[Rfam]
RNA sequence: UUGAAUGCAGGGGAUGGAGUUCCCCUUGAACCGCAUUUGCUGAUGACUCCUGCCAGACC
Numbered sequence: 001u002u003g004a005a006u007g008c009a010g011g012g013g014a015u016g017g018a019g020u021u022c023c024c025c026u027u028g029a030a031c032c033g034c035a036u037u038u039g040c041u042g043a044u045g046a047c048u049c050c051u052g053c054c055a056g057a058c059c
Stems, first nucleotide, its partner, number of pairs: 010025004016050006033040002
The record is a 59-nucleotide sequence from Desulfovibrio falkowii, which matches "Fluoride riboswitch aptamer (crcB RNA motif)" in Rfam.
Pairs were carried over by alignment from the consensus structure, which is taken from published work.